[Rfam]
The family of this 84-nucleotide sequence from Drosophila persimilis is "mir-2558 microRNA precursor family". The match comes from Rfam's covariance-model search (94 bits). Gene Ontology terms of the family: RISC complex and miRNA-mediated post-transcriptional gene silencing. The organism belongs to Sophophora, within Eukaryota.

RNA sequence: UGUGGUUAGGUGGGUACCUAAAUAUCUUAAUUAUAAUUUUCCGUUAGGAACUUACAAAGGUAUUUUUGUACCGACAGGCCUUUU
Numbered sequence: 001u002g003u004g005g006u007u008a009g010g011u012g013g014g015u016a017c018c019u020a021a022a023u024a025u026c027u028u029a030a031u032u033a034u035a036a037u038u039u040u041c042c043g044u045u046a047g048g049a050a051c052u053u054a055c056a057a058a059g060g061u062a063u064u065u066u067u068g069u070a071c072c073g074a075c076a077g078g079c080c081u082u083u084u
Base pairs, nucleotide, nucleotide: 010075011074013072014071015070016069017068020065021064022063023062024061025060026059027058039050040049041048042047
Dot-bracket structure: .........((.(((((..((((((((...........((((....)))).......))))))))..))))).)).........